Annotation: Rfam assigns this 89-nucleotide RNA sequence from Sulfobacillus harzensis to the family "c-di-GMP-I riboswitch aptamer". Rfam describes the family as follows. GEMM was predicted in a large-scale screen for bacterial structured RNA regulatory elements. The base pairs follow the family's consensus structure, which is taken from published work.

[Rfam]
RNA sequence: AUAGUGAAGGGGCACCCCGGGCGAAAGCUCGGUUCGCAAAGCCACAGGGUCUAAUGUCCGGAAAGGGCGAUGACAGCCGUGCUGCCACA
Number, nucleotide and partner (000 for none) at each position: 001a000002u000003a000004g000005u000006g000007a000008a000009g000010g000011g000012g037013c036014a000015c000016c000017c032018c031019g030020g029021g028022c027023g000024a000025a000026a000027g022028c021029u020030c019031g018032g017033u000034u000035c000036g013037c012038a000039a000040a083041g082042c081043c000044a000045c079046a000047g078048g077049g074050u073051c072052u000053a000054a000055u000056g068057u067058c066059c065060g000061g000062a000063a000064a000065g059066g058067g057068c056069g000070a000071u000072g051073a050074c049075a000076g000077c048078c047079g045080u000081g042082c041083u040084g000085c000086c000087a000088c000089a000